Notes:
Rfam assigns this 64-nucleotide sequence from Clostridiales bacterium oral taxon 876 to the family "RAGATH-18 RNA". The organism belongs to Clostridiales bacterium oral taxon 876, within Bacteria. The family's RNA type in Rfam is small RNA. About the family: Actinobacteria, Firmicutes, Fusobacteria, Thermotogae (1 example). It is one of the family's seed sequences.
[Rfam]
RNA sequence: CCCUUGGAGUGUCACACCAAACUAGAUUAGACUUUAGUCGAAAUAGGAUACGUUGAAGAGGGAA
Number, nucleotide and partner (000 for none) at each position: 001c062002c061003c060004u059005u058006g000007g000008a000009g051010u050011g049012u048013c047014a000015c000016a000017c000018c000019a000020a000021a000022c046023u045024a044025g000026a000027u000028u000029a000030g039031a038032c037033u000034u000035u000036a000037g032038u031039c030040g000041a000042a000043a000044u024045a023046g022047g013048a012049u011050a010051c009052g000053u000054u000055g000056a000057a000058g005059a004060g003061g002062g001063a000064a000